[Rfam]
RNA: Small nucleolar RNA SNORD26
RNA sequence: CUACGGGGAUGAUAUUUAAAUUGAACUCUCUCUUUCUGAUGGAUCAGUGGAGAAAACAUAAAAAUUCUGAGUAGC
Numbered sequence: 001c002u003a004c005g006g007g008g009a010u011g012a013u014a015u016u017u018a019a020a021u022u023g024a025a026c027u028c029u030c031u032c033u034u035u036c037u038g039a040u041g042g043a044u045c046a047g048u049g050g051a052g053a054a055a056a057c058a059u060a061a062a063a064a065u066u067c068u069g070a071g072u073a074g075c
Stems, first nucleotide, its partner, number of pairs: 001074004